[Rfam]
RNA: Plastid-psbA-4 3UTR RNA
Organism: Angelica laxifoliata
RNA sequence: AAAGAAGAAAUACCGCCCUCUUGUUCUAUCAAGAGGGCGGUAUUGCUUUUUU
Numbered sequence: 001a002a003a004g005a006a007g008a009a010a011u012a013c014c015g016c017c018c019u020c021u022u023g024u025u026c027u028a029u030c031a032a033g034a035g036g037g038c039g040g041u042a043u044u045g046c047u048u049u050u051u052u
Base pairs, nucleotide, nucleotide: 001052002051003050004049005048006047007046009044010043011042012041015038016037018035019034020033021032022031023030